The family of this 81-nucleotide RNA sequence from Paenibacillus sp. KS1 is "ZMP/ZTP riboswitch aptamer (pfl RNA motif)". The base pairs follow the family's consensus structure, which is taken from published work.

RNA sequence: AGGAUCCGAUGUAACUGGCGACGGAAGUGGGGAACCACGGUGGAGCAUCGGAGCAUACGGCCGGUCGCCUGGGCAGAAGAG
Numbered sequence: 001a002g003g004a005u006c007c008g009a010u011g012u013a014a015c016u017g018g019c020g021a022c023g024g025a026a027g028u029g030g031g032g033a034a035c036c037a038c039g040g041u042g043g044a045g046c047a048u049c050g051g052a053g054c055a056u057a058c059g060g061c062c063g064g065u066c067g068c069c070u071g072g073g074c075a076g077a078a079g080a081g
Stems, first nucleotide, its partner, number of pairs: 003054001005052008015042001017069005027038004058076001060074003